[Rfam]
RNA sequence: CUUGCACCGGUGGGGUCCUUCGGCCUGGCCUGCAGGGAUUGGGCCGAAACUGGCAGUCCGACAUCCCCCUAGGGGUCCCGGGUUGAGAGGGUGCAGGCCAGGCUGAGGGACCCCACCGGUGCACG
Numbered sequence: 001c002u003u004g005c006a007c008c009g010g011u012g013g014g015g016u017c018c019u020u021c022g023g024c025c026u027g028g029c030c031u032g033c034a035g036g037g038a039u040u041g042g043g044c045c046g047a048a049a050c051u052g053g054c055a056g057u058c059c060g061a062c063a064u065c066c067c068c069c070u071a072g073g074g075g076u077c078c079c080g081g082g083u084u085g086a087g088a089g090g091g092u093g094c095a096g097g098c099c100a101g102g103c104u105g106a107g108g109g110a111c112c113c114c115a116c117c118g119g120u121g122c123a124c125g
Base pairs, nucleotide, nucleotide: 003123004122006120008118009117010116012114013113014112015111016110017109018108019107020106021105022104023103024102025101027099028098029097030096031095032094033093034092